[Rfam]
RNA sequence: GCUGGCACAAUGAUGACUUAAGUUUUUGCCGUUUACCCAGCUGAGUGUUUCUUUGAAGAGAGAAUCUUAAAAGACUGAGAUGCCAGC
Numbered sequence: 001g002c003u004g005g006c007a008c009a010a011u012g013a014u015g016a017c018u019u020a021a022g023u024u025u026u027u028g029c030c031g032u033u034u035a036c037c038c039a040g041c042u043g044a045g046u047g048u049u050u051c052u053u054u055g056a057a058g059a060g061a062g063a064a065u066c067u068u069a070a071a072a073g074a075c076u077g078a079g080a081u082g083c084c085a086g087c
Stems, first nucleotide, its partner, number of pairs: 001087007
Shown here is an 87-nucleotide RNA sequence, a member of the family "Small nucleolar RNA SNORD87". The literature on the family includes a 2002 paper in Gene by Gogolevskaya et al., "U87 RNA, a novel C/D box small nucleolar RNA from mammalian cells".